[Rfam]
RNA sequence: CGAGAUAACCCUCGUUAAGGAACUCGGCAAAAUCGCCCCGUAACUUCGGGAUAAGGGGCGCCCUAGUAAGGUGAAGCUCUUCGCGAGUGGAGCCUGAGGGGGCCGCAGUGAAUUGGUCCAAGCGACUGUUUACCAAAAACACAGGUCUCUGCUAAGUCGAAAGACGACGUAUAGGGGCUGACGCCUGCCCGGUGCCGGAAGGUUACGUGGAGGUGUUAGGGUUCGCCCAAAGCACCGAAGCUAAGCCCCGGUAAACGGCGGCCGUAACUAUAACGGUCCUAAGGUAGCGAAAUUCCUUGUCGGGUAAGUUCCGACCUGCACGAAUGGCGUAACGACUUGGACGCUGUCUCAACGAGGGGCUCG
Numbered sequence: 001c002g003a004g005a006u007a008a009c010c011c012u013c014g015u016u017a018a019g020g021a022a023c024u025c026g027g028c029a030a031a032a033u034c035g036c037c038c039c040g041u042a043a044c045u046u047c048g049g050g051a052u053a054a055g056g057g058g059c060g061c062c063c064u065a066g067u068a069a070g071g072u073g074a075a076g077c078u079c080u081u082c083g084c085g086a087g088u089g090g091a092g093c094c095u096g097a098g099g100g101g102g103c104c105g106c107a108g109u110g111a112a113u114u115g116g117u118c119c120a121a122g123c124g125a126c127u128g129u130u131u132a133c134c135a136a137a138a139a140c141a142c143a144g145g146u147c148u149c150u151g152c153u154a155a156g157u158c159g160a161a162a163g164a165c166g167a168c169g170u171a172u173a174g175g176g177g178c179u180g181a182c183g184c185c186u187g188c189c190c191g192g193u194g195c196c197g198g199a200a201g202g203u204u205a206c207g208u209g210g211a212g213g214u215g216u217u218a219g220g221g222u223u224c225g226c227c228c229a230a231a232g233c234a235c236c237g238a239a240g241c242u243a244a245g246c247c248c249c250g251g252u253a254a255a256c257g258g259c260g261g262c263c264g265u266a267a268c269u270a271u272a273a274c275g276g277u278c279c280u281a282a283g284g285u286a287g288c289g290a291a292a293u294u295c296c297u298u299g300u301c302g303g304g305u306a307a308g309u310u311c312c313g314a315c316c317u318g319c320a321c322g323a324a325u326g327g328c329g330u331a332a333c334g335a336c337u338u339g340g341a342c343g344c345u346g347u348c349u350c351a352a353c354g355a356g357g358g359g360c361u362c363g
Stems, first nucleotide, its partner, number of pairs: 001363004009358008018349003035059005044049001060103005077092004082087001104108001116342007123334002127141003144179008152169001156165003182329004187259003192256002194252005201247003207241002212236005219228002260278006279283001289316001299315006

The family of this 363-nucleotide part of an RNA from Conexibacter woesei is "Bacterial large subunit ribosomal RNA".
The source organism's lineage runs through Bacteria, Actinomycetota, Solirubrobacterales, Conexibacter and Conexibacter woesei.
For this family Rfam cites "Crystal structure of the ribosome at 5.5 A resolution" (Yusupov et al., Science, 2001).